pan motif: a 97-nucleotide RNA from Megasphaera sp. An286. It scores 51 bits against the family's covariance model.
RNA sequence: AAGAUGACAUCACCUUUGUGAGUUAUACUUUUUCGGAUAAUUAUAUUUGCGCGAUGUACGUGCAUCUGCUUGGAUCGUAACGGACCGAGACAGAAAG
Numbered sequence: 001a002a003g004a005u006g007a008c009a010u011c012a013c014c015u016u017u018g019u020g021a022g023u024u025a026u027a028c029u030u031u032u033u034c035g036g037a038u039a040a041u042u043a044u045a046u047u048u049g050c051g052c053g054a055u056g057u058a059c060g061u062g063c064a065u066c067u068g069c070u071u072g073g074a075u076c077g078u079a080a081c082g083g084a085c086c087g088a089g090a091c092a093g094a095a096a097g
Stems, first nucleotide, its partner, number of pairs: 001030003004026005010021002066093003069089005075084002
NCBI's taxonomy places the organism under Bacteria, Bacillota, Negativicutes, Veillonellaceae, Megasphaera.